[Rfam]
RNA sequence: UAUCGAUGAACGAAGACUAAGAACGCCACGUCCUGUGGCAAUGUCUUCAUGACCAACAUCCUGUAGG
Numbered sequence: 001u002a003u004c005g006a007u008g009a010a011c012g013a014a015g016a017c018u019a020a021g022a023a024c025g026c027c028a029c030g031u032c033c034u035g036u037g038g039c040a041a042u043g044u045c046u047u048c049a050u051g052a053c054c055a056a057c058a059u060c061c062u063g064u065a066g067g
Stems, first nucleotide, its partner, number of pairs: 012048006025039005053067002056064002
RNA: Bacillaceae-1 RNA
Organism: Bacillus sp. FJAT-27986